Rfam assigns this 99-nucleotide RNA from Caenorhabditis latens to the family "mir-36 microRNA precursor family". Rfam links the family to the GO terms miRNA-mediated post-transcriptional gene silencing and RISC complex. The family is grouped with related families in Rfam's "mir-36 clan". A search with the family's covariance model found it, with a score of 56 bits.
[Rfam]
RNA sequence: UAUUCCCAGCAGGAUUAGACCUUUGCUGGUUUUCGCCUCGGUUAUACUUCGAGUAUGAUUAUCACCGGGUGAGCAUCGGUGCAGGUCCAAUCCUGCUAA
Numbered sequence: 001u002a003u004u005c006c007c008a009g010c011a012g013g014a015u016u017a018g019a020c021c022u023u024u025g026c027u028g029g030u031u032u033u034c035g036c037c038u039c040g041g042u043u044a045u046a047c048u049u050c051g052a053g054u055a056u057g058a059u060u061a062u063c064a065c066c067g068g069g070u071g072a073g074c075a076u077c078g079g080u081g082c083a084g085g086u087c088c089a090a091u092c093c094u095g096c097u098a099a
Stems, first nucleotide, its partner, number of pairs: 016089001018087005024081007032073006039067001041065002044062003